[Rfam]
RNA sequence: UGAGGCCUGUGAUGAUCUUUCCAAAUAUGUCUACAUUGUUUGAUUUCACAGUGAUAAGAAAUAUAAAGUCUGAGGCCUUG
Number, nucleotide and partner (000 for none) at each position: 001u080002g079003a000004g077005g076006c075007c074008u000009g000010u000011g000012a000013u000014g000015a000016u000017c000018u000019u000020u000021c000022c000023a000024a000025a000026u000027a000028u000029g000030u000031c000032u000033a000034c000035a000036u000037u000038g000039u000040u000041u000042g000043a000044u000045u000046u000047c000048a000049c000050a000051g000052u000053g000054a000055u000056a000057a000058g000059a000060a000061a000062u000063a000064u000065a000066a000067a000068g000069u000070c000071u000072g000073a000074g007075g006076c005077c004078u000079u002080g001
The family of this 80-nucleotide RNA sequence from Chenopodium quinoa is "Small nucleolar RNA SNORD34". Gene Ontology terms of the family: RNA processing and nucleolus. On this family, see Galardi et al., Mol Cell Biol 2002: "Purified box C/D snoRNPs are able to reproduce site-specific 2'-O-methylation of target RNA in vitro". The base pairs follow the family's consensus structure, which was predicted with PFOLD. A search with the family's covariance model found it, with a score of 48 bits. By type it is a C/D-box small nucleolar RNA. Rfam describes the family as follows. snoRNA U34 is found in intron 5 of the ribosomal protein L13a gene in humans. Rfam 15.1 lists 1,319 matches to the family in 583 species.